[Rfam]
RNA sequence: AAUUUUGAGUAGUCGCGGUUAGCAACUGCUAGCUGAGGAAAGUCCACGCACGCACAAGCUGCGAUGCUUGUAGUGAUCGUAUUCAGCCCAAUAAGCUGGAGGAAGGUAAACUUCACGGCGGAAAAAGUGCUAAGUCUUUGAUAUGCAUGAUUAUCCUUGAAAGUGCCACAGUGACGAAGCAGAAUUGGAAACGAUUCUGGUGGAACGAGGUAAACCCUGCGAGUGUGCAACCCAAAUUUGGUAGGGGCGUCUCGGCCUAAGGAAAUGAACUAAAGGUCGGAUUAUUACUUUAGUAAUAAAGAUAGAUGGCUACUGAAGGUGGCUUUUGCCAAGAGCCACUCGAACAGAACGUGGCUUAUAGAA
Numbered sequence: 001a002a003u004u005u006u007g008a009g010u011a012g013u014c015g016c017g018g019u020u021a022g023c024a025a026c027u028g029c030u031a032g033c034u035g036a037g038g039a040a041a042g043u044c045c046a047c048g049c050a051c052g053c054a055c056a057a058g059c060u061g062c063g064a065u066g067c068u069u070g071u072a073g074u075g076a077u078c079g080u081a082u083u084c085a086g087c088c089c090a091a092u093a094a095g096c097u098g099g100a101g102g103a104a105g106g107u108a109a110a111c112u113u114c115a116c117g118g119c120g121g122a123a124a125a126a127g128u129g130c131u132a133a134g135u136c137u138u139u140g141a142u143a144u145g146c147a148u149g150a151u152u153a154u155c156c157u158u159g160a161a162a163g164u165g166c167c168a169c170a171g172u173g174a175c176g177a178a179g180c181a182g183a184a185u186u187g188g189a190a191a192c193g194a195u196u197c198u199g200g201u202g203g204a205a206c207g208a209g210g211u212a213a214a215c216c217c218u219g220c221g222a223g224u225g226u227g228c229a230a231c232c233c234a235a236a237u238u239u240g241g242u243a244g245g246g247g248c249g250u251c252u253c254g255g256c257c258u259a260a261g262g263a264a265a266u267g268a269a270c271u272a273a274a275g276g277u278c279g280g281a282u283u284a285u286u287a288c289u290u291u292a293g294u295a296a297u298a299a300a301g302a303u304a305g306a307u308g309g310c311u312a313c314u315g316a317a318g319g320u321g322g323c324u325u326u327u328g329c330c331a332a333g334a335g336c337c338a339c340u341c342g343a344a345c346a347g348a349a350c351g352u353g354g355c356u357u358a359u360a361g362a363a
Stems, first nucleotide, its partner, number of pairs: 004363003007359001008314007016035006040357003044354005049227005054071006077222005082100006101116001102114004117217002120156003127148004134142003163215002165211003180199008231246003250281002253279005282299006318340009
Bacterial RNase P class B: a 363-nucleotide RNA from Lactobacillus corticis. Clan: RNaseP clan. NCBI's taxonomy places the organism under Bacteria, Bacillati, Bacillota, Lactobacillales, Lactobacillus. It scores 302 bits against the family's covariance model. Pairs were carried over by alignment from the consensus structure, which is taken from published work. The family's RNA type in Rfam is ribozyme.